[Rfam]
RNA sequence: AUGAAAGCAAGAGGAGAGACUAUUUCGGUAGCGCCGAAGGAGCAAGCAGGAGCGAAACUCUCAGGCAAAAAGACUCUUGUUUGACG
Numbered sequence: 001a002u003g004a005a006a007g008c009a010a011g012a013g014g015a016g017a018g019a020c021u022a023u024u025u026c027g028g029u030a031g032c033g034c035c036g037a038a039g040g041a042g043c044a045a046g047c048a049g050g051a052g053c054g055a056a057a058c059u060c061u062c063a064g065g066c067a068a069a070a071a072g073a074c075u076c077u078u079g080u081u082u083g084a085c086g
Base pairs, nucleotide, nucleotide: 006081007080008079009078010077011076012075013074020031021030022029023028033066034065035064036062037061040060041059042058046053047052
RNA: Glycine riboswitch aptamer
Organism: Fictibacillus enclensis